RNA: Small nucleolar RNA snoR111
RNA sequence: UAAAGAAGACAAGAGACGGAUUGGAAGUGUCUCUUGGCUUGGAAAGAACAGCCAGGUAAAACAAAUCCACGGCCGAGAUAUCGUUUCAGUCGUCAUACCUUCAUUGACGAUUCGAUUGUUGCUCGUCCACAA
Numbered sequence: 001u002a003a004a005g006a007a008g009a010c011a012a013g014a015g016a017c018g019g020a021u022u023g024g025a026a027g028u029g030u031c032u033c034u035u036g037g038c039u040u041g042g043a044a045a046g047a048a049c050a051g052c053c054a055g056g057u058a059a060a061a062c063a064a065a066u067c068c069a070c071g072g073c074c075g076a077g078a079u080a081u082c083g084u085u086u087c088a089g090u091c092g093u094c095a096u097a098c099c100u101u102c103a104u105u106g107a108c109g110a111u112u113c114g115a116u117u118g119u120u121g122c123u124c125g126u127c128c129a130c131a132a
Stems, first nucleotide, its partner, number of pairs: 007040002010037001013033006071128002074125004080116004089111007